Small nucleolar RNA SNORA55: a 121-nucleotide sequence from Patagioenas fasciata.

RNA sequence: GCGCCUGAAUCUUUCCUUCCUGUGCAGUGCAGGUCUGGGGACAGUUGGUGCGACAGCACAAAUCCAGAUGGCUUGUUUUCCGCUGGUUUGGAGCUCAUCUCCGAACACCUCUGCAACAUUG
Numbered sequence: 001g002c003g004c005c006u007g008a009a010u011c012u013u014u015c016c017u018u019c020c021u022g023u024g025c026a027g028u029g030c031a032g033g034u035c036u037g038g039g040g041a042c043a044g045u046u047g048g049u050g051c052g053a054c055a056g057c058a059c060a061a062a063u064c065c066a067g068a069u070g071g072c073u074u075g076u077u078u079u080c081c082g083c084u085g086g087u088u089u090g091g092a093g094c095u096c097a098u099c100u101c102c103g104a105a106c107a108c109c110u111c112u113g114c115a116a117c118a119u120u121g
Stems, first nucleotide, its partner, number of pairs: 001051005013041005019033002056114003066100006073093001080091003
Dot-bracket structure: (((((.......(((((.((...........))...))))).....)))))....(((.......((((((.(......(((......))).).))))))...........))).......

The family's RNA type in Rfam is H/ACA-box small nucleolar RNA.
The source organism's lineage runs through Eukaryota, Bilateria, Tetrapoda, Amniota and Patagioenas fasciata.